[Rfam]
RNA sequence: CCCAGUGGUUACUCUGUGUCUUAUGAUGAAGCUUCAUAGGGCAGAUUCUGAGCUGAGAAAUGAAAUCUCUCCACUGAUAUUUACUGUAUGCCAUCUGAAGACACAGUUCAUUAC
Dot-bracket structure: .............((((((((.........(...(((..((..(..((.(.(..(((.........)))..).).)))..)).....)))...)....))))))))........
Numbered sequence: 001c002c003c004a005g006u007g008g009u010u011a012c013u014c015u016g017u018g019u020c021u022u023a024u025g026a027u028g029a030a031g032c033u034u035c036a037u038a039g040g041g042c043a044g045a046u047u048c049u050g051a052g053c054u055g056a057g058a059a060a061u062g063a064a065a066u067c068u069c070u071c072c073a074c075u076g077a078u079a080u081u082u083a084c085u086g087u088a089u090g091c092c093a094u095c096u097g098a099a100g101a102c103a104c105a106g107u108u109c110a111u112u113a114c
Stems, first nucleotide, its partner, number of pairs: 014106008031094001035090003040082002044078001047077002050074001052072001055069003